[Rfam]
RNA: RgsA sRNA
RNA sequence: UGAGGGGCUAAGAAGUAUUCCAAAUAGGUUUAAGAAUUCCGGCGAACGGUCUGGACGAUCCACAAUCUUCGCCAAUACUGGAACUUACUGGUGUUCGGCGCCAUCCCCCAGGUGCCUCACCAGGCAAGGUGUCGUUGACCGCGCACCUUGAUUUACUCCUAAUGGUCUUGACCCGGACUCACCCCCAGAGCCCGG
Numbered sequence: 001u002g003a004g005g006g007g008c009u010a011a012g013a014a015g016u017a018u019u020c021c022a023a024a025u026a027g028g029u030u031u032a033a034g035a036a037u038u039c040c041g042g043c044g045a046a047c048g049g050u051c052u053g054g055a056c057g058a059u060c061c062a063c064a065a066u067c068u069u070c071g072c073c074a075a076u077a078c079u080g081g082a083a084c085u086u087a088c089u090g091g092u093g094u095u096c097g098g099c100g101c102c103a104u105c106c107c108c109c110a111g112g113u114g115c116c117u118c119a120c121c122a123g124g125c126a127a128g129g130u131g132u133c134g135u136u137g138a139c140c141g142c143g144c145a146c147c148u149u150g151a152u153u154u155a156c157u158c159c160u161a162a163u164g165g166u167c168u169u170g171a172c173c174c175g176g177a178c179u180c181a182c183c184c185c186c187a188g189a190g191c192c193c194g195g
Stems, first nucleotide, its partner, number of pairs: 041167003045163001088123003092119002097116001099114003125150008133141001173195004178190003